A member of the RNA family "Small nucleolar RNA Z105" from Handroanthus impetiginosus, 74 nucleotides long. The family has 11 seed sequences and 621 matches in Rfam 15.1. The source organism's lineage runs through Eukaryota, Viridiplantae, Spermatophyta, eudicotyledons and Handroanthus. The base pairs follow the family's consensus structure, which was predicted with CMfinder.
[Rfam]
RNA sequence: UUAGCAUAAUGAGGAUAAAUUUUAAAUUCUCCGAUCAAUUCAUGAAAGGAAUAUUUACCUCCUACUCAUUCUGA
Number, nucleotide and partner (000 for none) at each position: 001u000002u000003a000004g000005c000006a069007u068008a000009a066010u000011g000012a000013g000014g000015a000016u000017a000018a000019a000020u000021u000022u000023u000024a000025a000026a000027u050028u049029c000030u000031c044032c000033g000034a000035u000036c000037a000038a000039u000040u000041c000042a000043u000044g031045a000046a000047a000048g000049g028050a027051a000052u000053a000054u000055u000056u000057a000058c000059c000060u000061c000062c000063u000064a000065c000066u009067c000068a007069u006070u000071c000072u000073g000074a000